A member of the RNA family "Bag-1 internal ribosome entry site (IRES)" from Sciurus carolinensis, 331 nucleotides long. It scores 201 bits against the family's covariance model. From the family's description: This family represents the bag-1 internal ribosome entry site (IRES). When expressed the BAG-1 protein is known to enhance the anti-apoptotic properties of Bcl-2. Although bag-1 translation usually occurs via a cap-dependent mechanism it has been found to contain a IRES in its 5' UTR. Translation via the IRES has been found to be common following heat shock when cap-dependent scanning is compromised. The base pairs follow the family's consensus structure, which was predicted with PFOLD. The literature on the family includes a 2001 paper in Oncogene by Coldwell et al., "The p36 isoform of BAG-1 is translated by internal ribosome entry following heat shock".
[Rfam]
RNA sequence: UAGGCGGUCAAAAAGCGCGGGUUUGGCGACGGGGCGGCUCCCGGAGACCAAGAGGCGACCCGGAGCAGCUGGGCCCGGCGGCGCGCCCCUCGGCCGGGCGGGGAACCACGCCAGUCGGUGUCCCAGGCCGAGCACCGCCUGCCUCGCUCCCAGCGUCCAUCUGUCCCGAGUGCAGCCAGCGGGCAUGACCGAUCCACCCGGGGCGCCGCCGGCGCUCGUGAAGAAGGUCGGUCACCGCUCCACGCGGAGCGAGAAAGUGAGCCCGGCCGAGGAGGUGACCCGAGCGGAGGAGGCGGCCCUGACAGAAGAGGUGACCCGAACCCAGGAAAUG
Numbered sequence: 001u002a003g004g005c006g007g008u009c010a011a012a013a014a015g016c017g018c019g020g021g022u023u024u025g026g027c028g029a030c031g032g033g034g035c036g037g038c039u040c041c042c043g044g045a046g047a048c049c050a051a052g053a054g055g056c057g058a059c060c061c062g063g064a065g066c067a068g069c070u071g072g073g074c075c076c077g078g079c080g081g082c083g084c085g086c087c088c089c090u091c092g093g094c095c096g097g098g099c100g101g102g103g104a105a106c107c108a109c110g111c112c113a114g115u116c117g118g119u120g121u122c123c124c125a126g127g128c129c130g131a132g133c134a135c136c137g138c139c140u141g142c143c144u145c146g147c148u149c150c151c152a153g154c155g156u157c158c159a160u161c162u163g164u165c166c167c168g169a170g171u172g173c174a175g176c177c178a179g180c181g182g183g184c185a186u187g188a189c190c191g192a193u194c195c196a197c198c199c200g201g202g203g204c205g206c207c208g209c210c211g212g213c214g215c216u217c218g219u220g221a222a223g224a225a226g227g228u229c230g231g232u233c234a235c236c237g238c239u240c241c242a243c244g245c246g247g248a249g250c251g252a253g254a255a256a257g258u259g260a261g262c263c264c265g266g267c268c269g270a271g272g273a274g275g276u277g278a279c280c281c282g283a284g285c286g287g288a289g290g291a292g293g294c295g296g297c298c299c300u301g302a303c304a305g306a307a308g309a310g311g312u313g314a315c316c317c318g319a320a321c322c323c324a325g326g327a328a329a330u331g
Base pairs, nucleotide, nucleotide: 021099022098023097024096025095026094027093036089037088040085043049044048059078060077063076065074066073140313141312142311143310144309145308162185163184164183165182166181201217202216203215204214205213206212207211236251237250238249239248240247